[Rfam]
Nucleotides: 178
Stems, first nucleotide, its partner, number of pairs: 026041003043082010060072005083177001085175005
Number, partner (000 for none) and nucleotide at each position: 001000c002000g003000c004000g005000c006000c007000g008000u009000c010000a011000u012000u013000g014000g015000g016000g017000a018000g019000u020000a021000g022000c023000c024000u025000c026041c027040c028039u029000c030000c031000g032000g033000a034000u035000g036000g037000a038000g039028a040027g041026g042000g043082g044081a045080u046079c047078g048077c049076g050075u051074c052073a053000a054000c055000a056000g057000a058000c059000u060072u061071g062070c063069c064068u065000u066000c067000c068064a069063g070062g071061c072060a073052u074051g075050g076049c077048g078047c079046g080045a081044u082043c083177g084000g085175u086174u087173c088172c089171c090000g091000a092000g093000c094000u095000u096000g097000g098000c099000g100000a101000g102000a103000c104000c105000u106000u107000u108000g109000a110000c111000u112000g113000c114000a115000c116000a117000g118000c119000c120000u121000c122000c123000g124000c125000a126000u127000u128000g129000g130000g131000c132000c133000g134000g135000g136000g137000a138000a139000g140000c141000c142000g143000u144000g145000c146000a147000g148000u149000c150000a151000u152000c153000g154000g155000u156000g157000u158000u159000c160000g161000u162000u163000c164000c165000g166000g167000c168000c169000c170000a171089g172088g173087g174086a175085a176000a177083c178000u
Rfam assigns this 178-nucleotide sequence from Azoarcus indigens to the family "Manganese Mn2+ riboswitch aptamer (yybP-ykoY)". Rfam links the family to the GO term manganese ion binding. Rfam describes the family as follows. This RNA was originally discovered in E. coli during a large scale screen and was named SraF. The family was later found to exist upstream of related families of protein genes in many bacteria, including the the yybP and ykoK genes in B. subtilis. The specific functions of these proteins are unknown, but this structured RNA element may be involved in their genetic regulation as a riboswitch. The match comes from Rfam's covariance-model search (97 bits).